[Rfam]
A member of the RNA family "Enterococcus sRNA B11" from Ligilactobacillus pobuzihii, 184 nucleotides long. Lineage of the source: Bacteria > Bacillota > Lactobacillales > Lactobacillaceae > Ligilactobacillus. A search with the family's covariance model found it, with a score of 77 bits.
RNA sequence: GGCAACUUGCCCUGAAAGGGGGCGUUGUCUAUGGUACAUGAUAUUCUUUCGUUGAUUGUCGCACCUAUUAUUGUAGGUAUAGUUAUUAAACUAUUCUCUCAUUGGUUAGAUGAGAGUGACAAAGACGACGAUCACUAGCAAGUUGUCAAUCUAACCCACACGCUGAAUUCCGCGCAGCGAAAAA
Numbered sequence: 001g002g003c004a005a006c007u008u009g010c011c012c013u014g015a016a017a018g019g020g021g022g023c024g025u026u027g028u029c030u031a032u033g034g035u036a037c038a039u040g041a042u043a044u045u046c047u048u049u050c051g052u053u054g055a056u057u058g059u060c061g062c063a064c065c066u067a068u069u070a071u072u073g074u075a076g077g078u079a080u081a082g083u084u085a086u087u088a089a090a091c092u093a094u095u096c097u098c099u100c101a102u103u104g105g106u107u108a109g110a111u112g113a114g115a116g117u118g119a120c121a122a123a124g125a126c127g128a129c130g131a132u133c134a135c136u137a138g139c140a141a142g143u144u145g146u147c148a149a150u151c152u153a154a155c156c157c158a159c160a161c162g163c164u165g166a167a168u169u170c171c172g173c174g175c176a177g178c179g180a181a182a183a184a
Stems, first nucleotide, its partner, number of pairs: 001147008010021004022039001024037002053134009064077005079094006096116008161179005